[Rfam]
RNA: mir-9256 microRNA precursor family
Organism: Pipistrellus kuhlii
RNA sequence: AUAUACACUGAGUGACCAGAUUAUUAUGUGUUCAGAGAUCAUAAUAAUCUGGUCACUCUGUGUAUAA
Numbered sequence: 001a002u003a004u005a006c007a008c009u010g011a012g013u014g015a016c017c018a019g020a021u022u023a024u025u026a027u028g029u030g031u032u033c034a035g036a037g038a039u040c041a042u043a044a045u046a047a048u049c050u051g052g053u054c055a056c057u058c059u060g061u062g063u064a065u066a067a
Stems, first nucleotide, its partner, number of pairs: 004064005010058008019049010